[Rfam]
Nucleotides: 096
Stems, first nucleotide, its partner, number of pairs: 007090002011086004017080003023074010
Number, partner (000 for none) and nucleotide at each position: 001000g002000a003000a004000a005000u006000u007090c008089c009000u010000g011086c012085g013084g014083g015000g016000u017080c018079g019078a020000g021000c022000u023074g024073g025072g026071a027070a028069c029068a030067c031066a032065u033000g034000a035000g036000a037000u038000a039000u040000g041000a042000a043000c044000c045000g046000c047000u048000u049000g050000a051000u052000u053000g054000a055000a056000u057000a058000u059000c060000a061000a062000c063000u064000c065032a066031u067030g068029u069028g070027u071026u072025c073024u074023c075000a076000g077000g078019u079018c080017g081000c082000c083014c084013c085012c086011g087000c088000u089008g090007g091000a092000g093000c094000c095000u096000c